[Rfam]
RNA sequence: UCUUUCCUUGUCAUGGGGUUGAGGACUGUUCAAUGAGCGUAUAGUGAGAGCAGGCCUGCUAACACCAUAUCAACACAAAUGCAUCACCUGACUACUUGAAGUCAGAUAAUGGUGCAAUUUUUGGCAAC
Numbered sequence: 001u002c003u004u005u006c007c008u009u010g011u012c013a014u015g016g017g018g019u020u021g022a023g024g025a026c027u028g029u030u031c032a033a034u035g036a037g038c039g040u041a042u043a044g045u046g047a048g049a050g051c052a053g054g055c056c057u058g059c060u061a062a063c064a065c066c067a068u069a070u071c072a073a074c075a076c077a078a079a080u081g082c083a084u085c086a087c088c089u090g091a092c093u094a095c096u097u098g099a100a101g102u103c104a105g106a107u108a109a110u111g112g113u114g115c116a117a118u119u120u121u122u123g124g125c126a127a128c
Base pairs, nucleotide, nucleotide: 006018007017008016009015021059023057024056026053027052028051029050030049031048037045038044081115082114083113084112085111086110088105089104090103091102092101

Shown here is a 128-nucleotide RNA from Cyprinus carpio, a member of the family "U4atac minor spliceosomal RNA". Rfam describes the family as follows. U4atac is an essential component of the minor U12-type spliceosome complex which is required for removal of the rarer class of eukaryotic introns (AT-AC, U12-type). It is annotated as a spliceosomal small nuclear RNA.